[Rfam]
RNA: MIR7127 microRNA precursor family
Organism: Malus domestica
RNA sequence: AUUGGAAUACUCAUCGAAUUUGUCAUAGUGUUUCAGUUGUGUUAUGGAACCAAUUUUUCUCCCACUCCCAUACUUACCACCCAAUUAAUGGCACAGCUAGAACACUCUGACAAAUUGGAUGAGUAUUCCAAU
Number, nucleotide and partner (000 for none) at each position: 001a132002u131003u130004g129005g128006a127007a126008u125009a124010c123011u122012c121013a120014u119015c118016g000017a116018a115019u114020u113021u112022g111023u110024c109025a108026u000027a106028g105029u104030g103031u102032u101033u100034c000035a098036g097037u096038u095039g094040u093041g092042u091043u090044a089045u088046g000047g000048a000049a000050c000051c000052a000053a000054u000055u000056u000057u000058u000059c000060u000061c000062c000063c000064a000065c000066u000067c000068c000069c000070a000071u000072a000073c000074u000075u000076a000077c000078c000079a000080c000081c000082c000083a000084a000085u000086u000087a000088a045089u044090g043091g042092c041093a040094c039095a038096g037097c036098u035099a000100g033101a032102a031103c030104a029105c028106u027107c000108u025109g024110a023111c022112a021113a020114a019115u018116u017117g000118g015119a014120u013121g012122a011123g010124u009125a008126u007127u006128c005129c004130a003131a002132u001